[Rfam]
RNA sequence: AAAAUAAACUUUAAAUAACACACAUACAUCGACACAUGUGUCGGGGUGUCCACAACGGGUUUUGCCGCUCGAAUGGAUCGACAGAUGGGAUGUAUGGAGGCCUAAC
Numbered sequence: 001a002a003a004a005u006a007a008a009c010u011u012u013a014a015a016u017a018a019c020a021c022a023c024a025u026a027c028a029u030c031g032a033c034a035c036a037u038g039u040g041u042c043g044g045g046g047u048g049u050c051c052a053c054a055a056c057g058g059g060u061u062u063u064g065c066c067g068c069u070c071g072a073a074u075g076g077a078u079c080g081a082c083a084g085a086u087g088g089g090a091u092g093u094a095u096g097g098a099g100g101c102c103u104a105a106c
Stems, first nucleotide, its partner, number of pairs: 023096008035087003039083005048078005
This 106-nucleotide RNA sequence from Aliiglaciecola sp. M165 belongs to the Rfam family "t44 RNA". For this family Rfam cites "Transcriptome analysis of Escherichia coli using high-density oligonucleotide probe arrays" (Tjaden et al., Nucleic Acids Res, 2002). The match comes from Rfam's covariance-model search (81 bits). The family's consensus secondary structure was predicted with LocARNA. Rfam describes the family as follows. This family consists of a number of bacterial RNA genes of between 135 and 170 bases in length. The t44 gene has been identified in several species of enteric bacteria but homologs have also been identified in Pseudomonas and Coxiella species. The t44 gene is found between the map and rpsB genes in all species in the full alignment apart from Shigella flexneri. Taxonomically the source falls in Aliiglaciecola (Bacteria, Pseudomonadati, Gammaproteobacteria, Alteromonadaceae).